[Rfam]
RNA sequence: CCUGCACCGCGGUAGCUGAUGUGCGACGGAGUCCGCCGCGGAAGGCAGAAAUGAAGACGUCCAUCGCACCGCACUUCCAAAAAGUGCGGCCCGAGAACGGGAGAGAACGCUGAGCGUUACAAC
Numbered sequence: 001c002c003u004g005c006a007c008c009g010c011g012g013u014a015g016c017u018g019a020u021g022u023g024c025g026a027c028g029g030a031g032u033c034c035g036c037c038g039c040g041g042a043a044g045g046c047a048g049a050a051a052u053g054a055a056g057a058c059g060u061c062c063a064u065c066g067c068a069c070c071g072c073a074c075u076u077c078c079a080a081a082a083a084g085u086g087c088g089g090c091c092c093g094a095g096a097a098c099g100g101g102a103g104a105g106a107a108c109g110c111u112g113a114g115c116g117u118u119a120c121a122a123c
Stems, first nucleotide, its partner, number of pairs: 001045003007041006069089008
atpB RNA: a 123-nucleotide RNA from Corynebacterium appendicis. Taxonomically the source falls in Corynebacterium appendicis (Bacteria, Actinomycetes, Mycobacteriales, Corynebacterium). The family's consensus secondary structure is taken from published work. It scores 112 bits against the family's covariance model.